[Rfam]
RNA: Fluoride riboswitch aptamer (crcB RNA motif)
Organism: Variovorax sp. PBL-E5
RNA sequence: GCCCGCAUCGGAGAUGGCAUUCCUCCGUGAACCGCCCACUCGGGCUGAUGAUGCCUACCCAGGU
Numbered sequence: 001g002c003c004c005g006c007a008u009c010g011g012a013g014a015u016g017g018c019a020u021u022c023c024u025c026c027g028u029g030a031a032c033c034g035c036c037c038a039c040u041c042g043g044g045c046u047g048a049u050g051a052u053g054c055c056u057a058c059c060c061a062g063g064u
Stems, first nucleotide, its partner, number of pairs: 010026004016055006034045004
Dot-bracket structure: .........[[[[..((((((.]]]].......((((....))))....)))))).........